The family of this 103-nucleotide RNA from Nitrincola tapanii is "Guanidine-I riboswitch aptamer".

RNA sequence: GAAAUAGAGCGCUAGGGUUCCGACUGCCAAUUGGCAGUGACUGGUCCGAGAGCACUCGACCUUUCAGUGAAAGGUUACACGGCGGGACAAAAGCCCGGGAGAC
Numbered sequence: 001g002a003a004a005u006a007g008a009g010c011g012c013u014a015g016g017g018u019u020c021c022g023a024c025u026g027c028c029a030a031u032u033g034g035c036a037g038u039g040a041c042u043g044g045u046c047c048g049a050g051a052g053c054a055c056u057c058g059a060c061c062u063u064u065c066a067g068u069g070a071a072a073g074g075u076u077a078c079a080c081g082g083c084g085g086g087a088c089a090a091a092a093g094c095c096c097g098g099g100a101g102a103c
Stems, first nucleotide, its partner, number of pairs: 007057003011053002015047002020044002022041001023038006058076008078098001080101001084096003

Source information
Gene Ontology term of the family: regulation of gene expression. Lineage of the source: Bacteria > Pseudomonadati > Gammaproteobacteria > Oceanospirillaceae > Nitrincola. Pairs were carried over by alignment from the consensus structure.